[Rfam]
RNA sequence: GAGCUGAAUGUGAGAAUUGGAGGGAAUUAAACCCAUUAGUAUCUGUUUUUGCCAAUGAGUUUAAUUUCCUCCAAUAUCUCAUCUCCGGCUU
Numbered sequence: 001g002a003g004c005u006g007a008a009u010g011u012g013a014g015a016a017u018u019g020g021a022g023g024g025a026a027u028u029a030a031a032c033c034c035a036u037u038a039g040u041a042u043c044u045g046u047u048u049u050u051g052c053c054a055a056u057g058a059g060u061u062u063a064a065u066u067u068c069c070u071c072c073a074a075u076a077u078c079u080c081a082u083c084u085c086c087g088g089c090u091u
Stems, first nucleotide, its partner, number of pairs: 004088003008084001011081004016075006023068008032059001
Rfam assigns this 91-nucleotide RNA sequence from Nyssa sinensis to the family "MIR2275 microRNA precursor family". Taxonomically the source falls in Nyssa (Eukaryota, Embryophyta, Pentapetalae, Nyssaceae). Its family is annotated with miRNA-mediated post-transcriptional gene silencing and RISC complex in the Gene Ontology. Pairs were carried over by alignment from the consensus structure, which was predicted with RNAalifold.